[Rfam]
RNA: UnaL2 LINE 3' element
RNA sequence: AAGCAUCGAUCCUGUAAGUCUCUCUGGAUAAGAGCGUCUGCUAAAUGACUAACA
Numbered sequence: 001a002a003g004c005a006u007c008g009a010u011c012c013u014g015u016a017a018g019u020c021u022c023u024c025u026g027g028a029u030a031a032g033a034g035c036g037u038c039u040g041c042u043a044a045a046u047g048a049c050u051a052a053c054a
Base pairs, nucleotide, nucleotide: 013043014041015040016039020036022034023033024032025031